[Rfam]
RNA sequence: GGAUCCAGGAAAAGAAUGGUGUCAUCCCAGUGCCUAGACACUGGGAUCCAGAAGACUUAAUUUCAACCAAGUGGCUGCAUAAUAAAGGCUGGAUUCCAGUGUCAAGCACUGGAAUGACAUCCUCCCUUGUGGAAAUU
Numbered sequence: 001g002g003a004u005c006c007a008g009g010a011a012a013a014g015a016a017u018g019g020u021g022u023c024a025u026c027c028c029a030g031u032g033c034c035u036a037g038a039c040a041c042u043g044g045g046a047u048c049c050a051g052a053a054g055a056c057u058u059a060a061u062u063u064c065a066a067c068c069a070a071g072u073g074g075c076u077g078c079a080u081a082a083u084a085a086a087g088g089c090u091g092g093a094u095u096c097c098a099g100u101g102u103c104a105a106g107c108a109c110u111g112g113a114a115u116g117a118c119a120u121c122c123u124c125c126c127u128u129g130u131g132g133a134a135a136u137u
Base pairs, nucleotide, nucleotide: 013130015128020119021118022117023116024115025114027112028111029110030109031108032107033106035104037103038102039101040100041099042098043097044096045095046094047093048092049091050090051089
Wolbachia sRNA 46: a 137-nucleotide RNA from Trichonephila clavata.
Rfam classes the family as a small RNA.
Lineage of the source: Eukaryota > Arthropoda > Araneae > Entelegynae > Trichonephila.
Pairs were carried over by alignment from the consensus structure.
On this family, see Mayoral et al., Proc Natl Acad Sci U S A 2014: "Wolbachia small noncoding RNAs and their role in cross-kingdom communications".